Rfam assigns this 90-nucleotide RNA from Medicago truncatula to the family "MIR2617 microRNA precursor family". It scores 50 bits against the family's covariance model. Its family is annotated with RISC complex and miRNA-mediated post-transcriptional gene silencing in the Gene Ontology. Taxonomically the source falls in Medicago (Eukaryota, Tracheophyta, Hologalegina, Trifolieae).
RNA sequence: GGAAAAUGUAGCAUGCCCGUUUUGAUUACUCUGAUUUUUGUUGUAUUAUUACUAUUUAAGUAAUUUUGGGAAUCGGGGUGUUACAAUUGG
Dot-bracket structure: ...((.((((((((.((((.(((..............................................))).)))))))))))).))..
Numbered sequence: 001g002g003a004a005a006a007u008g009u010a011g012c013a014u015g016c017c018c019g020u021u022u023u024g025a026u027u028a029c030u031c032u033g034a035u036u037u038u039u040g041u042u043g044u045a046u047u048a049u050u051a052c053u054a055u056u057u058a059a060g061u062a063a064u065u066u067u068g069g070g071a072a073u074c075g076g077g078g079u080g081u082u083a084c085a086a087u088u089g090g
Stems, first nucleotide, its partner, number of pairs: 004088002007085008016077004021072003